A member of the RNA family "Bacterial large subunit ribosomal RNA" from Oceanococcus atlanticus, 265 nucleotides of a longer RNA.
RNA sequence: UGAGAUUUGAGAGGAGCUGUCCUUAGUACGAGAGGACCGGGAUGGACGCACCACUGGUGUUUCUGUUGUCAUGCCAAUGGCAUUGCAGAGUAGCUACGUGCGGACGGGAUAACCGCUGAAAGCAUCUAAGCGGGAAGCCCCCCUCAAGAUAAGAUCUCACUAGAGCUUUAAGCUCUCUUAAGGGCCGUUGGAGACUACGACGUUGAUAGGCUGGGUGUGGAAGUGCAGCAAUGUAUGAAGCUAACCAGUACUAAUUGCCCGUGAG
Numbered sequence: 001u002g003a004g005a006u007u008u009g010a011g012a013g014g015a016g017c018u019g020u021c022c023u024u025a026g027u028a029c030g031a032g033a034g035g036a037c038c039g040g041g042a043u044g045g046a047c048g049c050a051c052c053a054c055u056g057g058u059g060u061u062u063c064u065g066u067u068g069u070c071a072u073g074c075c076a077a078u079g080g081c082a083u084u085g086c087a088g089a090g091u092a093g094c095u096a097c098g099u100g101c102g103g104a105c106g107g108g109a110u111a112a113c114c115g116c117u118g119a120a121a122g123c124a125u126c127u128a129a130g131c132g133g134g135a136a137g138c139c140c141c142c143c144u145c146a147a148g149a150u151a152a153g154a155u156c157u158c159a160c161u162a163g164a165g166c167u168u169u170a171a172g173c174u175c176u177c178u179u180a181a182g183g184g185c186c187g188u189u190g191g192a193g194a195c196u197a198c199g200a201c202g203u204u205g206a207u208a209g210g211c212u213g214g215g216u217g218u219g220g221a222a223g224u225g226c227a228g229c230a231a232u233g234u235a236u237g238a239a240g241c242u243a244a245c246c247a248g249u250a251c252u253a254a255u256u257g258c259c260c261g262u263g264a265g
Stems, first nucleotide, its partner, number of pairs: 001159008011145004017045007047102005055096003062089005067082006106140003113133005162176005182260004186202005207253003210249005217241001223236005